[Rfam]
The record is a 55-nucleotide RNA from Pinguicula ehlersiae, which matches "Plastid-psbA-3 3UTR RNA" in Rfam. On this family, see Richter et al., Plant Commun 2023: "Retrograde signaling in plants: A critical review focusing on the GUN pathway and beyond".
RNA sequence: UAAGGAGCAAUAACCCCCCUUGCUAGAACAAGAAGAAGUUAUUGCUCCUUUAUUU
Numbered sequence: 001u002a003a004g005g006a007g008c009a010a011u012a013a014c015c016c017c018c019c020u021u022g023c024u025a026g027a028a029c030a031a032g033a034a035g036a037a038g039u040u041a042u043u044g045c046u047c048c049u050u051u052a053u054u055u
Stems, first nucleotide, its partner, number of pairs: 002050013019032004
About this RNA:
Pairs were carried over by alignment from the consensus structure, which was predicted with LocARNA. Rfam's curators write: Plastid psbA-3 is a non-coding RNA (ncRNA) present in plastids. It was identified in inverted repeat sequences in the 3 prime untranslate region (3UTR) of photosystem II quinone-binding protein (psbA).